mir-24 microRNA precursor family: a 68-nucleotide sequence from Polypterus senegalus. From the family's description: This family represents the microRNA (miRNA) mir-24 family. miRNAs are transcribed as ~70nt precursors (modelled here) and subsequently processed by the Dicer enzyme to give a ~22nt product. In this case the mature sequence comes from the 3' arm of the precursor. The extents of the hairpin precursors are not generally known and are estimated based on hairpin prediction. The products are thought to have regulatory roles through complementarity to mRNA. The involvement of Dicer in miRNA processing suggests a relationship with the phenomenon of RNA interference. miRNAs are numbered based on the sequence of the mature RNA. miR-24 has been identified in human and mouse. Its family is annotated with miRNA-mediated post-transcriptional gene silencing and RISC complex in the Gene Ontology. For this family Rfam cites "Identification of novel genes coding for small expressed RNAs" (Lagos-Quintana et al., Science, 2001).
Nucleotides: 068
Stems, first nucleotide, its partner, number of pairs: 003068004008063002011060003015056009027045004
Number, partner (000 for none) and nucleotide at each position: 001000a002000c003068c004067u005066c006065c007000u008063g009062u010000g011060c012059c013058u014000a015056c016055u017054g018053a019052g020051c021050u022049g023048a024000u025000a026000a027045c028044a029043g030042u031000a032000a033000a034000u035000g036000u037000a038000u039000a040000g041000a042030a043029c044028u045027g046000g047000c048023u049022c050021a051020g052019u053018u054017c055016a056015g057000c058013a059012g060011g061000a062009a063008c064000c065006g066005g067004a068003g
It scores 80 bits against the family's covariance model.